[Rfam]
RNA: Clostridiales-1 RNA
Organism: [Ruminococcus] lactaris
RNA sequence: AGAUGUCAGGGUCAAAAGGUCUGAAACCACGUGUACUUGCACACUGGUGGUAGAAUGACCUUGAGACCCGCCCCGAUAUGAGCAUAAAAGUGGGGCGUAAGCACCAUGAUAUGCGAAUAGCGGGUAGUGCGUAGCACGAAACAAUCCGUUGGCAUCA
Numbered sequence: 001a002g003a004u005g006u007c008a009g010g011g012u013c014a015a016a017a018g019g020u021c022u023g024a025a026a027c028c029a030c031g032u033g034u035a036c037u038u039g040c041a042c043a044c045u046g047g048u049g050g051u052a053g054a055a056u057g058a059c060c061u062u063g064a065g066a067c068c069c070g071c072c073c074c075g076a077u078a079u080g081a082g083c084a085u086a087a088a089a090g091u092g093g094g095g096c097g098u099a100a101g102c103a104c105c106a107u108g109a110u111a112u113g114c115g116a117a118u119a120g121c122g123g124g125u126a127g128u129g130c131g132u133a134g135c136a137c138g139a140a141a142c143a144a145u146c147c148g149u150u151g152g153c154a155u156c157a
Stems, first nucleotide, its partner, number of pairs: 002156006010068004016062006026051005031044004077119003082114004093105002095102002122147004127137004